[Rfam]
RNA sequence: CUCUCUUAGUGUUCACAGUGGACCUUGAUUUAAAAUCAGUCAAUUAAGGCACGCGGUGAAUGCCAAGAGAG
Numbered sequence: 001c002u003c004u005c006u007u008a009g010u011g012u013u014c015a016c017a018g019u020g021g022a023c024c025u026u027g028a029u030u031u032a033a034a035a036u037c038a039g040u041c042a043a044u045u046a047a048g049g050c051a052c053g054c055g056g057u058g059a060a061u062g063c064c065a066a067g068a069g070a071g
Base pairs, nucleotide, nucleotide: 003069004068005067006066009063010062011061012060013059014058015057016056018054019053020052023049024048025047026046027045028044029043030042
Rfam assigns this 71-nucleotide RNA from Channa argus to the family "mir-124 microRNA precursor family". The organism belongs to Channa, within Eukaryota. A reference for the family is Lai et al. (2003), "Computational identification of Drosophila microRNA genes", Genome Biol.